Rfam assigns this 134-nucleotide sequence from Sulfurimonas lithotrophica to the family "purD RNA motif". A search with the family's covariance model found it, with a score of 76 bits. The organism belongs to Sulfurimonas, within Bacteria. The family's RNA type in Rfam is cis-regulatory element. A reference for the family is Weinberg et al. (2007), "Identification of 22 candidate structured RNAs in bacteria using the CMfinder comparative genomics pipeline", Nucleic Acids Res.

RNA sequence: CUAGAACUUUUGUGUGUCGGUAUUAUCGUUUGAGGCAAGUUAACUCUGCUGAGAUUUUGCCGCCUUUAUAAAGUUCUCUCUUCGCCCAAAUUCGGCCUUGAGAACCGAAGCUAAUGCAAGUCGGUCUUUCGGGC
Numbered sequence: 001c002u003a004g005a006a007c008u009u010u011u012g013u014g015u016g017u018c019g020g021u022a023u024u025a026u027c028g029u030u031u032g033a034g035g036c037a038a039g040u041u042a043a044c045u046c047u048g049c050u051g052a053g054a055u056u057u058u059g060c061c062g063c064c065u066u067u068a069u070a071a072a073g074u075u076c077u078c079u080c081u082u083c084g085c086c087c088a089a090a091u092u093c094g095g096c097c098u099u100g101a102g103a104a105c106c107g108a109a110g111c112u113a114a115u116g117c118a119a120g121u122c123g124g125u126c127u128u129u130c131g132g133g134c
Base pairs, nucleotide, nucleotide: 003077004076006074007073008072009071010070018062019061020060021059022058025055026054027053034050035049036048037047091109092108093107094106095105